Shown here is a 319-nucleotide RNA from Pseudacidovorax intermedius, a member of the family "Bacterial RNase P class A". By type it is a ribozyme. Ribonuclease P (RNase P) is a ubiquitous endoribonuclease, found in archaea, bacteria and eukarya as well as chloroplasts and mitochondria.
Nucleotides: 319
Base pairs, nucleotide, nucleotide: 001315002314003313004312005311007309008308009307010306011304012266013265014264015263016262017261018260020048021047022046023045024044025043026042053302054301055300057299058298059297060296061295062169063168064167065166069201070200071199072198074165075164076163077162078161079093080092081091082090083089094108095106096105097104098103109160110159114158115157116154117153130143131142132141133140173221174220175219176218183212184211185210186209187208188207194204195203196202229249230248231247232246234245235244236243237242
Number, partner (000 for none) and nucleotide at each position: 001315g002314a003313a004312g005311c006000a007309c008308g009307c010306c011304a012266g013265a014264c015263c016262g017261c018260c019000g020048c021047u022046g023045g024044u025043g026042c027000a028000a029000u030000c031000g032000c033000c034000g035000a036000a037000a038000g039000g040000c041000g042026g043025c044024a045023c046022u047021g048020g049000a050000g051000g052000a053302a054301c055300g056000u057299c058298c059297g060296g061295a062169c063168u064167g065166c066000a067000c068000a069201g070200g071199g072198c073000a074165g075164c076163g077162c078161a079093g080092g081091a082090g083089c084000u085000a086000a087000c088000g089083g090082c091081u092080c093079c094108c095106c096105a097104u098103c099000g100000c101000g102000a103098g104097g105096u106095g107000a108094g109160g110159a111000u112000c113000a114158g115157a116154g117153c118000a119000a120000c121000a122000g123000a124000g125000a126000c127000g128000a129000g130143c131142c132141g133140a134000u135000u136000c137000a138000g139000u140133u141132c142131g143130g144000g145000u146000g147000a148000a149000a150000c151000g152000g153117g154116c155000a156000a157115u158114c159110u160109c161078u162077g163076c164075g165074c166065g167064c168063a169062g170000c171000a172000a173221u174220a175219c176218c177000a178000a179000g180000u181000a182000g183212g184211u185210g186209a187208a188207c189000g190000u191000c192000g193000a194204g195203g196202c197000g198072g199071c200070c201069c202196g203195c204194u205000g206000a207188g208187u209186u210185c211184a212183c213000g214000g215000g216000u217000a218176g219175g220174u221173a222000g223000c224000a225000u226000c227000g228000a229249g230248c231247c232246g233000u234245c235244c236243g237242g238000g239000u240000g241000a242237c243236c244235g245234g246232c247231g248230g249229c250000c251000a252000a253000g254000a255000c256000a257000g258000a259000u260018g261017g262016c263015g264014g265013u266012c267000a268000c269000g270000c271000c272000g273000c274000g275000g276000g277000c278000a279000a280000c281000c282000g283000c284000g285000g286000u287000g288000c289000a290000c291000a292000g293000a294000a295061u296060c297059c298058g299057g300055c301054g302053u303000a304011u305000c306010g307009g308008c309007g310000c311005g312004c313003u314002u315001c316000a317000c318000a319000a